[Rfam]
RNA sequence: GCCUUAUCAAGAGUGGUGGAGGGAAUGGGCCCUGUGAAACCCGGCAACCUAUGGUCUUUGACUGUGAGGUGCUAAAUCCCACAGAAUAGUAUUCUGAAAGAUGAGGU
Dot-bracket structure: ((((((((....(.(((...(((..[[[[)))......))))((((.((.((((.......))))..))))))...(]]]]((((((...))))))..)))))))))
Numbered sequence: 001g002c003c004u005u006a007u008c009a010a011g012a013g014u015g016g017u018g019g020a021g022g023g024a025a026u027g028g029g030c031c032c033u034g035u036g037a038a039a040c041c042c043g044g045c046a047a048c049c050u051a052u053g054g055u056c057u058u059u060g061a062c063u064g065u066g067a068g069g070u071g072c073u074a075a076a077u078c079c080c081a082c083a084g085a086a087u088a089g090u091a092u093u094c095u096g097a098a099a100g101a102u103g104a105g106g107u
Stems, first nucleotide, its partner, number of pairs: 001107008013042001015041003021032003026081004043073004048069002051065004077099001082096006